Overview
The record is a 373-nucleotide RNA sequence from Spirosoma sp., which matches "transfer-messenger RNA" in Rfam.
RNA sequence: GGGGGCGACUGGAAUUGACAGCUUGUAGAGGUCGCGUGUAAGCAUGCCGGGAGUUGACGGUAUUUCCCGCCCAAACAAAUCGUUAAAACAAUAACUGGCGAAUAUAACUACGCCAUGGCUGCCUAAUCCGGAGGAUUAAGCAAUAGCCAUUGUCUCCCCAGCCUUGGUACUGCUGGCUGGAUCAGGAGGCAUCGACUCGCAGUGCUGGUCUGGAUAAUGGUGUUGACAACAGACGAGACAAAAAUACCUACGGUUGCGGGUUGGCCUGUUGCGAGCCUGCCCAAUACCCGACAAUCAAAAUCGCAACUAAGCAUGUAGAAGGCACGUCGGGUUCCCUGACUGGACGAGAGUUCGAAUCUCUCCGUCUCCACUU
Numbered sequence: 001g002g003g004g005g006c007g008a009c010u011g012g013a014a015u016u017g018a019c020a021g022c023u024u025g026u027a028g029a030g031g032u033c034g035c036g037u038g039u040a041a042g043c044a045u046g047c048c049g050g051g052a053g054u055u056g057a058c059g060g061u062a063u064u065u066c067c068c069g070c071c072c073a074a075a076c077a078a079a080u081c082g083u084u085a086a087a088a089c090a091a092u093a094a095c096u097g098g099c100g101a102a103u104a105u106a107a108c109u110a111c112g113c114c115a116u117g118g119c120u121g122c123c124u125a126a127u128c129c130g131g132a133g134g135a136u137u138a139a140g141c142a143a144u145a146g147c148c149a150u151u152g153u154c155u156c157c158c159c160a161g162c163c164u165u166g167g168u169a170c171u172g173c174u175g176g177c178u179g180g181a182u183c184a185g186g187a188g189g190c191a192u193c194g195a196c197u198c199g200c201a202g203u204g205c206u207g208g209u210c211u212g213g214a215u216a217a218u219g220g221u222g223u224u225g226a227c228a229a230c231a232g233a234c235g236a237g238a239c240a241a242a243a244a245u246a247c248c249u250a251c252g253g254u255u256g257c258g259g260g261u262u263g264g265c266c267u268g269u270u271g272c273g274a275g276c277c278u279g280c281c282c283a284a285u286a287c288c289c290g291a292c293a294a295u296c297a298a299a300a301u302c303g304c305a306a307c308u309a310a311g312c313a314u315g316u317a318g319a320a321g322g323c324a325c326g327u328c329g330g331g332u333u334c335c336c337u338g339a340c341u342g343g344a345c346g347a348g349a350g351u352u353c354g355a356a357u358c359u360c361u362c363c364g365u366c367u368c369c370a371c372u373u
Stems, first nucleotide, its partner, number of pairs: 001369007019342003023338001025336001032330003035326005043315005049070001051068001055085007115150007151191006158180006167205006208234005219249002224244001252288003258282003263277003268307004273301001346362005
Dot-bracket structure: (((((((...........(((.(.(......((((((((...(((((.[.[...(((((((......].]........))))))).............................(((((((......................)))))))((((((.((((((...[[[[[[..)))))).....))))))........]]]]]]..(((((......[[...[.....))))).........]...]]..(((...(((..(((..[[[[.[.)))..)))...)))............]..]]]]...)))))......))))).))).....).).)))...(((((.......))))))))))))....
Taxonomically the source falls in Spirosoma (Bacteria, Pseudomonadati, Bacteroidota, Cytophagia).